Shown here is a 112-nucleotide sequence from Aureimonas endophytica, a member of the family "EcpR1". About the family: Perviously named SmelC291, SmrC10, or Sra33. For this family Rfam cites "Deep sequencing uncovers numerous small RNAs on all four replicons of the plant pathogen Agrobacterium tumefaciens" (Wilms et al., RNA Biol, 2012). Its family is annotated with negative regulation of cell cycle, mRNA binding and regulation of translation in response to stress in the Gene Ontology. Lineage of the source: Bacteria > Pseudomonadota > Alphaproteobacteria > Hyphomicrobiales > Aureimonas.
[Rfam]
RNA sequence: AUCCUCAUGGGAUGUUCAGGUCCGCCGCAUCUCCUGAGUCCCGUGGGGCGGCCGAUCGGCACCUGGCACAAGCGGUUUCCUCGUUCCGCCGCCGGGGCCGAUCGGCCACUUU
Numbered sequence: 001a002u003c004c005u006c007a008u009g010g011g012a013u014g015u016u017c018a019g020g021u022c023c024g025c026c027g028c029a030u031c032u033c034c035u036g037a038g039u040c041c042c043g044u045g046g047g048g049c050g051g052c053c054g055a056u057c058g059g060c061a062c063c064u065g066g067c068a069c070a071a072g073c074g075g076u077u078u079c080c081u082c083g084u085u086c087c088g089c090c091g092c093c094g095g096g097g098c099c100g101a102u103c104g105g106c107c108a109c110u111u112u
Stems, first nucleotide, its partner, number of pairs: 003048008015038006050107011